[Rfam]
RNA sequence: ACGCUGAAACCGCCGAGUUCGCCGGACGCAGCCAGCGGUCGGCGAAGCCGGGGACCCACCGACAGUUCCCCUGGGCAGGCAGGAGCCGGCCGGCUCCGUCGGACCCAAUGGAGGGUGUUCCCCCGGGGUGAAUCCGUUCCGGCGCACCCGGGCGCGCCGGUCGCGGUAGGGCUGCUCCUAGCCCGAACCCGUCAGCUAACCCGGUAGGCGGUCCAGGAAGGAGAU
Number, nucleotide and partner (000 for none) at each position: 001a000002c000003g000004c000005u000006g000007a000008a000009a000010c000011c210012g209013c208014c207015g000016a000017g000018u046019u045020c044021g043022c042023c041024g040025g039026a000027c000028g000029c000030a000031g000032c000033c000034a000035g000036c000037g000038g000039u025040c024041g023042g022043c021044g020045a019046a018047g205048c204049c203050g202051g201052g200053g000054a000055c000056c000057c125058a000059c000060c000061g000062a000063c000064a000065g000066u000067u000068c000069c000070c000071c000072u000073g000074g000075g000076c000077a000078g000079g000080c000081a000082g000083g000084a000085g000086c000087c000088g000089g000090c000091c000092g000093g000094c000095u000096c000097c000098g000099u000100c000101g000102g000103a000104c000105c000106c000107a000108a000109u000110g000111g000112a000113g000114g000115g000116u000117g000118u000119u000120c000121c000122c000123c000124c000125g057126g190127g189128g188129u000130g000131a000132a000133u000134c166135c165136g164137u163138u000139c000140c000141g000142g000143c000144g000145c000146a000147c000148c000149c000150g000151g000152g000153c000154g000155c000156g000157c000158c000159g000160g000161u000162c000163g137164c136165g135166g134167u000168a000169g184170g183171g182172c181173u000174g000175c000176u000177c000178c000179u000180a000181g172182c171183c170184c169185g000186a000187a000188c128189c127190c126191g000192u000193c000194a000195g000196c000197u000198a000199a000200c052201c051202c050203g049204g048205u047206a000207g014208g013209c012210g011211g000212u000213c000214c000215a000216g000217g000218a000219a000220g000221g000222a000223g000224a000225u000
RNA: c-di-AMP riboswitch aptamer (ydaO/yuaA leader)
Organism: Thermomonospora curvata